[Rfam]
RNA sequence: UUCUUAUCCAGAGAGGUGGAGGGACUGGCCCUUUGAAGCCUCGGCAACAGACUUAAUCACAAGUACUGUGCCAAUUCCAGCAAGCAAGUAGCUUGAAAGAUAAGAG
Number, nucleotide and partner (000 for none) at each position: 001u106002u105003c104004u103005u102006a101007u100008c099009c000010a000011g000012a000013g042014a041015g040016g039017u038018g000019g000020a000021g031022g030023g029024a000025c080026u079027g078028g077029c023030c022031c021032u000033u000034u000035g000036a000037a000038g017039c016040c015041u014042c013043g072044g071045c070046a069047a000048c068049a067050g000051a064052c063053u062054u061055a000056a000057u000058c000059a000060c000061a054062a053063g052064u051065a000066c000067u049068g048069u046070g045071c044072c043073a000074a000075u000076u098077c028078c027079a026080g025081c095082a094083a093084g092085c091086a000087a000088g000089u000090a000091g085092c084093u083094u082095g081096a000097a000098a076099g008100a007101u006102a005103a004104g003105a002106g001

Record summary:
Shown here is a 106-nucleotide RNA from Gracilibacillus kekensis, a member of the family "SAM riboswitch aptamer (S box leader)". Gene Ontology term of the family: regulation of gene expression. The match comes from Rfam's covariance-model search (96 bits). The organism belongs to Gracilibacillus, within Bacteria.